[Rfam]
RNA sequence: GAAGCUAUGAUGAGAUUAAACACUUUGAUGUGUUAUGGGCAGUGGACAUAGCUUUUAGUUAAGUUAUGCCGUGAGCCUAUAUACUAAACGACUUCUCCUUCCACUGAGCUUC
Numbered sequence: 001g002a003a004g005c006u007a008u009g010a011u012g013a014g015a016u017u018a019a020a021c022a023c024u025u026u027g028a029u030g031u032g033u034u035a036u037g038g039g040c041a042g043u044g045g046a047c048a049u050a051g052c053u054u055u056u057a058g059u060u061a062a063g064u065u066a067u068g069c070c071g072u073g074a075g076c077c078u079a080u081a082u083a084c085u086a087a088a089c090g091a092c093u094u095c096u097c098c099u100u101c102c103a104c105u106g107a108g109c110u111u112c
Base pairs, nucleotide, nucleotide: 001112002111003110004109005108

Shown here is a 112-nucleotide RNA sequence from Cucumis melo, a member of the family "Small nucleolar RNA Z152/R70/R12/". Rfam 15.1 lists 604 matches to the family in 220 species. The base pairs follow the family's consensus structure, which was predicted with PFOLD. The family's RNA type in Rfam is C/D-box small nucleolar RNA. NCBI's taxonomy places the organism under Eukaryota, Streptophytina, Euphyllophyta, fabids, Cucumis melo subsp. agrestis.